[Rfam]
Record summary
The family of this 75-nucleotide sequence from Myotis myotis is "mir-9223 microRNA precursor family". The family's consensus secondary structure was predicted with RNAalifold.
RNA sequence: GGUGGUUCUCGGGUGACACACCCCAGAAUCAGGCUCCCUCCUCUCUGGUUUCGGGUGCAUCACCCAAGAAUCACA
Number, nucleotide and partner (000 for none) at each position: 001g000002g074003u073004g000005g071006u070007u069008c068009u067010c000011g065012g064013g063014u062015g061016a060017c000018a000019c057020a056021c055022c054023c053024c000025a000026g051027a050028a049029u048030c047031a046032g045033g044034c000035u000036c000037c000038c000039u000040c000041c000042u000043c000044u033045c032046u031047g030048g029049u028050u027051u026052c000053g023054g022055g021056u020057g019058c000059a000060u016061c015062a014063c013064c012065c011066a000067a009068g008069a007070a006071u005072c000073a003074c002075a000